[Rfam]
RNA sequence: AUCGCUAGCGCGGGAGAGACUGUCACGGCAACACGGUGACGGCGCCGACGGAGCAACCGCCCCGGAAACUCUCAGGCCCAAGGACCGCGCAGCAGGA
Numbered sequence: 001a002u003c004g005c006u007a008g009c010g011c012g013g014g015a016g017a018g019a020c021u022g023u024c025a026c027g028g029c030a031a032c033a034c035g036g037u038g039a040c041g042g043c044g045c046c047g048a049c050g051g052a053g054c055a056a057c058c059g060c061c062c063c064g065g066a067a068a069c070u071c072u073c074a075g076g077c078c079c080a081a082g083g084a085c086c087g088c089g090c091a092g093c094a095g096g097a
Stems, first nucleotide, its partner, number of pairs: 006092001008090006020042007044077003047073002051071003057065002
The record is a 97-nucleotide RNA from Caballeronia sp. SBC1, which matches "Glycine riboswitch aptamer" in Rfam.
NCBI's taxonomy places the organism under Bacteria, Pseudomonadati, Betaproteobacteria, Burkholderiaceae, Caballeronia.